[Rfam]
Nucleotides: 093
Stems, first nucleotide, its partner, number of pairs: 012037002017032004022027001040087004045083003048078003055072007
Number, partner (000 for none) and nucleotide at each position: 001000a002000c003000c004000u005000g006000u007000a008000a009000a010000a011000a012037g013036c014000a015000a016000a017032c018031c019030u020029a021000u022027c023000g024000a025000a026000a027022g028000u029020u030019a031018g032017g033000g034000a035000c036013g037012c038000a039000a040087a041086g042085u043084c044000a045083g046082g047081a048078g049077u050076c051000u052000g053000c054000c055072a056071u057070g058069c059068u060067g061066g062000u063000a064000u065000u066061c067060c068059a069058g070057c071056a072055u073000a074000a075000u076050g077049a078048u079000c080000g081047u082046c083045c084043g085042a086041c087040u088000g089000c090000c091000a092000u093000g